RNA sequence: UUCUGAUUGGACGAUAACUGUCACGUGUCAUGAGAUGUUGACUCGAUGGACGAUGAAAUGCAUUCUUGUAAUCAUUGGUCAAUCAGAACAUAACAAGUGGCAAUUAUCGUUC
Numbered sequence: 001u002u003c004u005g006a007u008u009g010g011a012c013g014a015u016a017a018c019u020g021u022c023a024c025g026u027g028u029c030a031u032g033a034g035a036u037g038u039u040g041a042c043u044c045g046a047u048g049g050a051c052g053a054u055g056a057a058a059u060g061c062a063u064u065c066u067u068g069u070a071a072u073c074a075u076u077g078g079u080c081a082a083u084c085a086g087a088a089c090a091u092a093a094c095a096a097g098u099g100g101c102a103a104u105u106a107u108c109g110u111u112c
Stems, first nucleotide, its partner, number of pairs: 020101004026095001030091002036088001038086002041083001043081001
Dot-bracket structure: ...................((((..(...((....(.((.(.(.....................................).).)).).))...)..))))...........
Shown here is a 112-nucleotide sequence from Glycine max, a member of the family "MIR1520 microRNA precursor family". Its family is annotated with miRNA-mediated post-transcriptional gene silencing and RISC complex in the Gene Ontology. Rfam 15.1 lists 1,934 matches to the family in 15 species. Taxonomically the source falls in Glycine subgen. Soja (Eukaryota, Streptophytina, Fabales, Phaseoleae).